[Rfam]
RNA sequence: UACCUUUACAUUUUAAUCAAAUUCAGUAAUAAUAUUUGGUGCUAAUAUAGCUAUAGUAAUAAACGUAAUUUAGAAUAGAGGUUGCGGACUCGGGGGCAGUACCCGACGCCUCCACCAAUAUUCGAUGAACUCCAAAAAUUUGCUGCGUCAUUUUAUUAAGUGCUGUGGUCUUUAUGUGUUAAGUAACUGCUCACGCUUUUUGUAGUUGAUCUAUAUAUGUAUGAUUUUCGGUUUAAAUUGAAUUUAAUUUUGAGAAAUGCGCGAAGUUUACAAAUGAAUAUAUGAGCUAUGAGCAUCACGAACAAUUGAUAAAAUGAAAGAGUAAUAUUAAAUAAAGUAAAGAUAAGUAGAAUUUUUUGGGGGCGAAAUAGGAUCGACGUGCCUAAUAAAAAAAUUGCUUUUACUCGGUAUGAUCCCACCGAUGGCUUUUGCCAUAUGGGUCAAAACAAAGAAACGCAAACGAUAAUAAGCGUUAUGUAGGUGUUGCCGCUUUAGCUGCAGCUUAAUCCUACGCGGCUUGGGAUUUGCCGGGCAACAGAAAAAUCCCAU
Dot-bracket structure: ........................................((((...))))...(((((.....(((((((........(((.(((...(((((.......)))))(((((((.....................................................................................................................................................................................................................................................)))))))............))))))........)))))))..)))))[[[[.(((.(((]]]]................))))))......................................................................[[[[..((((((.]]]]...........))))))..
The family of this 549-nucleotide RNA from Rickettsia typhi is "Alphaproteobacteria transfer-messenger RNA". Taxonomically the source falls in Rickettsia typhi (Bacteria, Pseudomonadota, Rickettsieae, Rickettsia). The family is grouped with related families in Rfam's "tRNA clan". It is one of the family's seed sequences. Pairs were carried over by alignment from the consensus structure, which is taken from published work.